[Rfam]
RNA: mir-515 microRNA precursor family
RNA sequence: UCUCAAACGGUGACACUCUAAAGGGCAGCGCUUCCUUUUUUUCCAGACAACAGAAAGUGCUGCCCUUCAGAGGGUCACAGCAUGAGA
Numbered sequence: 001u002c003u004c005a006a007a008c009g010g011u012g013a014c015a016c017u018c019u020a021a022a023g024g025g026c027a028g029c030g031c032u033u034c035c036u037u038u039u040u041u042u043c044c045a046g047a048c049a050a051c052a053g054a055a056a057g058u059g060c061u062g063c064c065c066u067u068c069a070g071a072g073g074g075u076c077a078c079a080g081c082a083u084g085a086g087a
Base pairs, nucleotide, nucleotide: 001087002086003085004084005083008080010078011077012076013075014074016072017071018070021067022066023065024064025063026062027061028060029059030058031057032056033055035053038052